[Rfam]
RNA: c-di-AMP riboswitch aptamer (ydaO/yuaA leader)
RNA sequence: CAACUUGACACACCUGCACCGAGGGAGCCGGGGAACCACCAAUUGGGGUGAAUCGGACUCGUCCCGCCCAUGGACGCGGCCCGUAGGAGACCUUCCUGCUCCGAACCCGUCAGCUAACCCGGUAGGCGAGAAGGAAGGAAAGG
Numbered sequence: 001c002a003a004c005u006u007g008a009c010a011c012a013c014c015u016g017c018a019c020c021g022a023g024g025g026a027g028c029c030g031g032g033g034a035a036c037c038a039c040c041a042a043u044u045g046g047g048g049u050g051a052a053u054c055g056g057a058c059u060c061g062u063c064c065c066g067c068c069c070a071u072g073g074a075c076g077c078g079g080c081c082c083g084u085a086g087g088a089g090a091c092c093u094u095c096c097u098g099c100u101c102c103g104a105a106c107c108c109g110u111c112a113g114c115u116a117a118c119c120c121g122g123u124a125g126g127c128g129a130g131a132a133g134g135a136a137g138g139a140a141a142g143g
Base pairs, nucleotide, nucleotide: 001024027123028122029121030120031119032118037045038044046108047107048106054083055082056081086102087101088100089099